[Rfam]
RNA sequence: GCGCUUGCGGUGCCCCGGCCGGCGCCCUAUAUUCACCCUGUCCGGUGCAAGCCGGACUAUGGACAUAAACGCGCUCGUAAUAAGCGGAUCGGACCCGGGGGCGGUACCCGGCGGCUCCACCAUUCACCUUCGUUGGGGGAACAUGGGGCCGAAACAGGAUCGACGAACGUCUAAAGGGGUUUGCUUUGUCCCGGUGAGCUACCACCGUUAUCGGUGCAAAAUGUACAGUUGCCAACGACAACCGUGCUCCGGUGGCUCUGGCUGCGUAAGCAGUUCGAGUUAUCGAAACCUAAGCCCUUGCGCCUAGCAGCGUAAGGCGGGGCCCGCAGGAGCCUGGCAACAGAAUCCUGCACU
Numbered sequence: 001g002c003g004c005u006u007g008c009g010g011u012g013c014c015c016c017g018g019c020c021g022g023c024g025c026c027c028u029a030u031a032u033u034c035a036c037c038c039u040g041u042c043c044g045g046u047g048c049a050a051g052c053c054g055g056a057c058u059a060u061g062g063a064c065a066u067a068a069a070c071g072c073g074c075u076c077g078u079a080a081u082a083a084g085c086g087g088a089u090c091g092g093a094c095c096c097g098g099g100g101g102c103g104g105u106a107c108c109c110g111g112c113g114g115c116u117c118c119a120c121c122a123u124u125c126a127c128c129u130u131c132g133u134u135g136g137g138g139g140a141a142c143a144u145g146g147g148g149c150c151g152a153a154a155c156a157g158g159a160u161c162g163a164c165g166a167a168c169g170u171c172u173a174a175a176g177g178g179g180u181u182u183g184c185u186u187u188g189u190c191c192c193g194g195u196g197a198g199c200u201a202c203c204a205c206c207g208u209u210a211u212c213g214g215u216g217c218a219a220a221a222u223g224u225a226c227a228g229u230u231g232c233c234a235a236c237g238a239c240a241a242c243c244g245u246g247c248u249c250c251g252g253u254g255g256c257u258c259u260g261g262c263u264g265c266g267u268a269a270g271c272a273g274u275u276c277g278a279g280u281u282a283u284c285g286a287a288a289c290c291u292a293a294g295c296c297c298u299u300g301c302g303c304c305u306a307g308c309a310g311c312g313u314a315a316g317g318c319g320g321g322g323c324c325c326g327c328a329g330g331a332g333c334c335u336g337g338c339a340a341c342a343g344a345a346u347c348c349u350g351c352a353c354u
Base pairs, nucleotide, nucleotide: 040057041056042055043054044053045052046051061191062190063189064188065187071184072183073180074179075178076177085169086168089166090165091164095111096110097109098108099107112151113150114149115148116147117146118145192207193206194205195204198217199216201215202214203213320335321334322333323332326351327350328349329348330347331346
RNA: Alphaproteobacteria transfer-messenger RNA